[Rfam]
RNA: Guanidine-I riboswitch aptamer
RNA sequence: CAGUUUGUUCUCUAGGGUUCCGCGGCGCUUGCCGGUCCAUGGUCCGAGAGAGAACACGCAGCCAUGCUGCGGACACGGAGGGAUAAAAGCCCGGGAGGA
Numbered sequence: 001c002a003g004u005u006u007g008u009u010c011u012c013u014a015g016g017g018u019u020c021c022g023c024g025g026c027g028c029u030u031g032c033c034g035g036u037c038c039a040u041g042g043u044c045c046g047a048g049a050g051a052g053a054a055c056a057c058g059c060a061g062c063c064a065u066g067c068u069g070c071g072g073a074c075a076c077g078g079a080g081g082g083a084u085a086a087a088a089g090c091c092c093g094g095g096a097g098g099a
Stems, first nucleotide, its partner, number of pairs: 007055006015045002020042002022037001023034004057071006074094001076097001080092003